Shown here is a 153-nucleotide sequence from Ascidiaceihabitans donghaensis, a member of the family "Ruegeria cis2 sRNA".
Its family is annotated with regulation of gene expression in the Gene Ontology.
The organism belongs to Ascidiaceihabitans, within Bacteria.
Pairs were carried over by alignment from the consensus structure, which was predicted with RNAfold.
Nucleotides: 153
Stems, first nucleotide, its partner, number of pairs: 003034002006032003013025003037057004041052002064153003068149001070082003086147002089144006098134001100131001102129001104126002107123002110119002
Number, partner (000 for none) and nucleotide at each position: 001000c002000g003034u004033g005000c006032u007031g008030u009000a010000u011000c012000g013025c014024g015023g016000a017000u018000u019000g020000u021000a022000g023015u024014u025013g026000a027000u028000g029000a030008a031007c032006g033004u034003a035000a036000a037057g038056c039055c040054g041052c042051g043000c044000g045000a046000u047000u048000g049000a050000u051042c052041g053000a054040u055039g056038g057037c058000a059000u060000g061000a062000a063000a064153c065152a066151g067000c068149g069000g070082g071081u072080u073000c074000c075000a076000g077000u078000c079000a080072a081071a082070c083000a084000u085000c086147g087146c088000c089144a090143g091142c092141a093140u094139g095000a096000a097000g098134c099000c100131c101000g102129g103000a104126a105125g106000c107123g108122u109000g110119u111118u112000u113000g114000c115000a116000a117000c118111a119110a120000a121000c122108a123107u124000c125105u126104u127000g128000c129102c130000a131100g132000a133000c134098g135000c136000a137000a138000u139094c140093a141092u142091g143090u144089u145000c146087g147086c148000c149068c150000u151066u152065u153064g